[Rfam]
RNA sequence: AGCCUUUUUGUUGGCAUGCUCACUUUUUGAAACUAGUAAAUAUGGGGUCAAAGAGGCAUAAAUCAAUGCUUAUCAGGCUUUUCUGGCCCUUAAAUUUGAUAUUUUAAUGUAGGAGUUGUGUAAGUAAAAAUA
Numbered sequence: 001a002g003c004c005u006u007u008u009u010g011u012u013g014g015c016a017u018g019c020u021c022a023c024u025u026u027u028u029g030a031a032a033c034u035a036g037u038a039a040a041u042a043u044g045g046g047g048u049c050a051a052a053g054a055g056g057c058a059u060a061a062a063u064c065a066a067u068g069c070u071u072a073u074c075a076g077g078c079u080u081u082u083c084u085g086g087c088c089c090u091u092a093a094a095u096u097u098g099a100u101a102u103u104u105u106a107a108u109g110u111a112g113g114a115g116u117u118g119u120g121u122a123a124g125u126a127a128a129a130a131u132a
Stems, first nucleotide, its partner, number of pairs: 002057006009050002012047001015045001017042002020039001022037003068125004074118003082114003086110002092103002
The family of this 132-nucleotide RNA from Marmota monax is "Small nucleolar RNA SNORA13". The match comes from Rfam's covariance-model search (61 bits). Pairs were carried over by alignment from the consensus structure, which was predicted with CMfinder. From the family's description: ACA13 is a member of the H/ACA class of snoRNA that guide the sites of modification of uridines to pseudouridines. It is annotated as an H/ACA-box small nucleolar RNA. The organism belongs to Marmota, within Eukaryota.